[Rfam]
RNA sequence: AAAAUUACCUGGCAGUGGAGAUACUGUAAUCAUGAAGGUGGUUUUCCCAGGGUGAGGCUCACCCAUUGCGCUCUGGAUGUGCUGACCCCUGUGAUUUCCCCAAAUGUGGGAAACUGAACUGCAAAAUUUAUGGUAGUGGGAGACUGCAUUUGCACUUUCCCC
Numbered sequence: 001a002a003a004a005u006u007a008c009c010u011g012g013c014a015g016u017g018g019a020g021a022u023a024c025u026g027u028a029a030u031c032a033u034g035a036a037g038g039u040g041g042u043u044u045u046c047c048c049a050g051g052g053u054g055a056g057g058c059u060c061a062c063c064c065a066u067u068g069c070g071c072u073c074u075g076g077a078u079g080u081g082c083u084g085a086c087c088c089c090u091g092u093g094a095u096u097u098c099c100c101c102a103a104a105u106g107u108g109g110g111a112a113a114c115u116g117a118a119c120u121g122c123a124a125a126a127u128u129u130a131u132g133g134u135a136g137u138g139g140g141a142g143a144c145u146g147c148a149u150u151u152g153c154a155c156u157u158u159c160c161c162c
Stems, first nucleotide, its partner, number of pairs: 012122004017047005023042005049090004054086001056083003060079002063076002092117001094115001095113003099109002138161006145154003